[Rfam]
RNA sequence: CUGGGCUAGGAAAUGGUUGCUGUGUAGCUGUGCCUGCUUGGGUUCAGCCUUGUACCAGCUAACCUCACCUUGCCCUAUAUAAAAGCGUGGCAUAUCCCUUUCAGAGGUCUGCCCCAUGCAGUAACAGGUGUGAGCAUUCUGUCAGUAGUUUGAUGGUCAUGUAUGAUACUGCAUACAAUU
Numbered sequence: 001c002u003g004g005g006c007u008a009g010g011a012a013a014u015g016g017u018u019g020c021u022g023u024g025u026a027g028c029u030g031u032g033c034c035u036g037c038u039u040g041g042g043u044u045c046a047g048c049c050u051u052g053u054a055c056c057a058g059c060u061a062a063c064c065u066c067a068c069c070u071u072g073c074c075c076u077a078u079a080u081a082a083a084a085g086c087g088u089g090g091c092a093u094a095u096c097c098c099u100u101u102c103a104g105a106g107g108u109c110u111g112c113c114c115c116a117u118g119c120a121g122u123a124a125c126a127g128g129u130g131u132g133a134g135c136a137u138u139c140u141g142u143c144a145g146u147a148g149u150u151u152g153a154u155g156g157u158c159a160u161g162u163a164u165g166a167u168a169c170u171g172c173a174u175a176c177a178a179u180u
Base pairs, nucleotide, nucleotide: 003075004074005073006072008070009069010068015064016063017062018061019059020058021057022056024055025054027048028047029046030045032043033042034041086107088105090102092100116174117173118172119171120170121169122168123167125165126164131159132158133157135155136154137153138152141150143148
The family of this 180-nucleotide sequence from Salvator merianae is "Small Cajal body specific RNA 16". scaRNAs are a specific class of small nuclear RNAs which localise to the Cajal bodies and guide the modification of RNA polymerase II transcribed spliceosomal RNAs U1, U2, U4, U5 and U12. ACA47 belongs to the H/ACA box class of guide RNAs as it has the predicted hairpin-hinge-hairpin-tail structure, the conserved H/ACA-box motifs and is found associated with GAR1. ACA47 is predicted to guide the pseudouridylation of residue U5 of the U1 spliceosomal snRNA. The base pairs follow the family's consensus structure, which was predicted with RNAfold. The organism belongs to Salvator, within Eukaryota. The family's RNA type in Rfam is small Cajal body RNA. On this family, see Darzacq et al., EMBO J 2002: "Cajal body-specific small nuclear RNAs: a novel class of 2'-O-methylation and pseudouridylation guide RNAs".